[Rfam]
RNA sequence: CUUUCUGGAAAUAGAUUGUUUAGUAUAAAGUUGAUAAUAGGGAUCAAAUGUUUCUACAGGCAGCCGUAAAUUGCCUACUACUAAAAAAAUCGGAGGAAUU
Numbered sequence: 001c002u003u004u005c006u007g008g009a010a011a012u013a014g015a016u017u018g019u020u021u022a023g024u025a026u027a028a029a030g031u032u033g034a035u036a037a038u039a040g041g042g043a044u045c046a047a048a049u050g051u052u053u054c055u056a057c058a059g060g061c062a063g064c065c066g067u068a069a070a071u072u073g074c075c076u077a078c079u080a081c082u083a084a085a086a087a088a089a090u091c092g093g094a095g096g097a098a099u100u
Stems, first nucleotide, its partner, number of pairs: 019085007029049001031047005058076006
RNA: Purine riboswitch aptamer